About this RNA: A member of the RNA family "Mammalian CPEB3 ribozyme" from Microcaecilia unicolor, 78 nucleotides long. Lineage of the source: Eukaryota > Eumetazoa > Craniata > Dipnotetrapodomorpha > Microcaecilia. The match comes from Rfam's covariance-model search (47 bits). The base pairs follow the family's consensus structure, which is taken from published work.

[Rfam]
RNA sequence: AGUCCAGGAAUAUGGGUCAUAGCAGAAGCACUGAUAUCGCAGCCCUUGUCAGAUUCCUACAAUUCUGUGAAUGCUGCU
Numbered sequence: 001a002g003u004c005c006a007g008g009a010a011u012a013u014g015g016g017u018c019a020u021a022g023c024a025g026a027a028g029c030a031c032u033g034a035u036a037u038c039g040c041a042g043c044c045c046u047u048g049u050c051a052g053a054u055u056c057c058u059a060c061a062a063u064u065c066u067g068u069g070a071a072u073g074c075u076g077c078u
Stems, first nucleotide, its partner, number of pairs: 014045004021078005027072001028040002050067004055062001
Dot-bracket structure: .............[[[[...(((((.(((.........)).]]]]....((((.(......).))))....).)))))